[Rfam]
RNA sequence: AGAUAAAUCUGAAAUACGGAGUAAAGCUUGCCGUGAGAAGUCAGCAGAGGCCAUAGUACCGAUUUUUUUUUUCGGAAAGGGC
Numbered sequence: 001a002g003a004u005a006a007a008u009c010u011g012a013a014a015u016a017c018g019g020a021g022u023a024a025a026g027c028u029u030g031c032c033g034u035g036a037g038a039a040g041u042c043a044g045c046a047g048a049g050g051c052c053a054u055a056g057u058a059c060c061g062a063u064u065u066u067u068u069u070u071u072u073c074g075g076a077a078a079g080g081g082c
Stems, first nucleotide, its partner, number of pairs: 001028002004024001006022001008020004041048002050082003059075004
Rfam assigns this 82-nucleotide RNA sequence from Peptoclostridium acidaminophilum to the family "Group II catalytic intron D1-D4-1". The base pairs follow the family's consensus structure. Lineage of the source: Bacteria > Bacillati > Peptoclostridiaceae > Peptoclostridium > Peptoclostridium acidaminophilum. About the family: Group II introns are found in rRNA, tRNA and mRNA of organelles in fungi, plants and protists, and also in mRNA in bacteria. Gene Ontology term of the family: Group II intron splicing.